RNA sequence: AGAAAGACGCAGAACGAAGAGAGUAAGAAAUGGCGGAACUGGCAGAGAGGGAUUGUCACCGGCUGUAAGCAGUCCUGAGGGAAGUGUUUCUGAAGUGCAUUCGGGAGUCGGUCUGGUGAACCAUUGUCUGUGAGUCAAUUAUUAGCCGGGCACGUAAGACGCACGUUACGCGUACAGGAGUGGAGAAUCAGACAGAUACGAAAAGUGUCAGAAGUCAGGUUCUCUAUAAGAGUGGAACCGCGGAGUUAAGCUUCGUCUCUUUU
Numbered sequence: 001a002g003a004a005a006g007a008c009g010c011a012g013a014a015c016g017a018a019g020a021g022a023g024u025a026a027g028a029a030a031u032g033g034c035g036g037a038a039c040u041g042g043c044a045g046a047g048a049g050g051g052a053u054u055g056u057c058a059c060c061g062g063c064u065g066u067a068a069g070c071a072g073u074c075c076u077g078a079g080g081g082a083a084g085u086g087u088u089u090c091u092g093a094a095g096u097g098c099a100u101u102c103g104g105g106a107g108u109c110g111g112u113c114u115g116g117u118g119a120a121c122c123a124u125u126g127u128c129u130g131u132g133a134g135u136c137a138a139u140u141a142u143u144a145g146c147c148g149g150g151c152a153c154g155u156a157a158g159a160c161g162c163a164c165g166u167u168a169c170g171c172g173u174a175c176a177g178g179a180g181u182g183g184a185g186a187a188u189c190a191g192a193c194a195g196a197u198a199c200g201a202a203a204a205g206u207g208u209c210a211g212a213a214g215u216c217a218g219g220u221u222c223u224c225u226a227u228a229a230g231a232g233u234g235g236a237a238c239c240g241c242g243g244a245g246u247u248a249a250g251c252u253u254c255g256u257c258u259c260u261u262u263u
Stems, first nucleotide, its partner, number of pairs: 007108002015103004026091006039079002049076008111151007153165003183224007229260004240256005